[Rfam]
A member of the RNA family "mir-1 microRNA precursor family" from Nothobranchius furzeri, 76 nucleotides long. Rfam's curators write: This family represents the microRNA (miRNA) mir-1 family. miRNAs are transcribed as ~70nt precursors (modelled here) and subsequently processed by the Dicer enzyme to give a ~22nt product. In this case the mature sequence comes from the 3' arm of the precursor. The extents of the hairpin precursors are not generally known and are estimated based on hairpin prediction. The products are thought to have regulatory roles through complementarity to mRNA. The involvement of Dicer in miRNA processing suggests a relationship with the phenomenon of RNA interference. miRNAs are numbered based on the sequence of the mature RNA. This family also contains the mir-206 from human, which appears to be related to mir-1. The organism belongs to Nothobranchius, within Eukaryota. For this family Rfam cites "An extensive class of small RNAs in Caenorhabditis elegans" (Lee and Ambros, Science, 2001). The family has 137 seed sequences and 4,474 matches in Rfam 15.1. The family's consensus secondary structure was predicted with RNAalifold.
RNA sequence: CUUGCGAGGACAUGCUUCCUUAUAUCCCCAUAUUAAUGCAGCACUUAUGGAAUGUAAGGAAGUGUGUGGUUUCAAA
Numbered sequence: 001c002u003u004g005c006g007a008g009g010a011c012a013u014g015c016u017u018c019c020u021u022a023u024a025u026c027c028c029c030a031u032a033u034u035a036a037u038g039c040a041g042c043a044c045u046u047a048u049g050g051a052a053u054g055u056a057a058g059g060a061a062g063u064g065u066g067u068g069g070u071u072u073c074a075a076a
Stems, first nucleotide, its partner, number of pairs: 007070001010067016028050005